[Rfam]
RNA: mir-129 microRNA precursor family
RNA sequence: UUGGGUCUUUUUGCGGUCUGGGCUUGCUGUUCCUCUCAACGCAGUCAGGAAGCCCUUACCCCAAAAAGUAUCUU
Numbered sequence: 001u002u003g004g005g006u007c008u009u010u011u012u013g014c015g016g017u018c019u020g021g022g023c024u025u026g027c028u029g030u031u032c033c034u035c036u037c038a039a040c041g042c043a044g045u046c047a048g049g050a051a052g053c054c055c056u057u058a059c060c061c062c063a064a065a066a067a068g069u070a071u072c073u074u
Stems, first nucleotide, its partner, number of pairs: 007068007015060003020055004025050001027048002